The record is a 134-nucleotide RNA sequence from Hemibagrus wyckioides, which matches "Small nucleolar RNA SNORA9" in Rfam. Rfam classes the family as an H/ACA-box small nucleolar RNA. From the family's description: ACA9 is a member of the H/ACA class of snoRNA that guide the sites of modification of uridines to pseudouridines. The match comes from Rfam's covariance-model search (94 bits).
RNA sequence: CUGCAGGCUGUUCAGCGAGGCUGGGUCUAACAUGUGACUUUGUCCUUUCCUGUAUGUCUGCUAGAGAAACUCGGGGUGGUUUGAGGCCUGACAGCAUUCCCUUCGCUGUCAGGUUAUAGAAACCUCAUACAAAU
Numbered sequence: 001c002u003g004c005a006g007g008c009u010g011u012u013c014a015g016c017g018a019g020g021c022u023g024g025g026u027c028u029a030a031c032a033u034g035u036g037a038c039u040u041u042g043u044c045c046u047u048u049c050c051u052g053u054a055u056g057u058c059u060g061c062u063a064g065a066g067a068a069a070c071u072c073g074g075g076g077u078g079g080u081u082u083g084a085g086g087c088c089u090g091a092c093a094g095c096a097u098u099c100c101c102u103u104c105g106c107u108g109u110c111a112g113g114u115u116a117u118a119g120a121a122a123c124c125u126c127a128u129a130c131a132a133a134u
Stems, first nucleotide, its partner, number of pairs: 003061006018046003023040005073126004087113006094106002